[Rfam]
The record is a 54-nucleotide RNA, which matches "S4-Clostridia ribosomal protein leader" in Rfam. The family is grouped with related families in Rfam's "Ribosomal Protein S4 Leader clan". The family's RNA type in Rfam is cis-regulatory leader.
RNA sequence: GAAAGGGUGUGGAUACCGACACACCUGGAUGGCGGCACAGCCAUCCCUAUUAAA
Numbered sequence: 001g002a003a004a005g006g007g008u009g010u011g012g013a014u015a016c017c018g019a020c021a022c023a024c025c026u027g028g029a030u031g032g033c034g035g036c037a038c039a040g041c042c043a044u045c046c047c048u049a050u051u052a053a054a
Stems, first nucleotide, its partner, number of pairs: 005026007027046007